serC leader: a 52-nucleotide sequence from Roseibium alexandrii. Its family is annotated with regulation of gene expression in the Gene Ontology. Rfam classes the family as a cis-regulatory leader. From the family's description: This family is a putative regulatory RNA structure that is found upstream of the serC-serA operon in some alpha-proteobacteria. The final stem of the structure overlaps the ribosome binding site of the serC reading frame.

RNA sequence: AGAUGGGCCACCCCUCCCCAACGAGGGGCUCCUAUCUGUGAGGGUAGACUUG
Numbered sequence: 001a002g003a004u005g006g007g008c009c010a011c012c013c014c015u016c017c018c019c020a021a022c023g024a025g026g027g028g029c030u031c032c033u034a035u036c037u038g039u040g041a042g043g044g045u046a047g048a049c050u051u052g
Stems, first nucleotide, its partner, number of pairs: 011028006032047006
The pairing is the family consensus, mapped onto this sequence. The organism belongs to Roseibium, within Bacteria.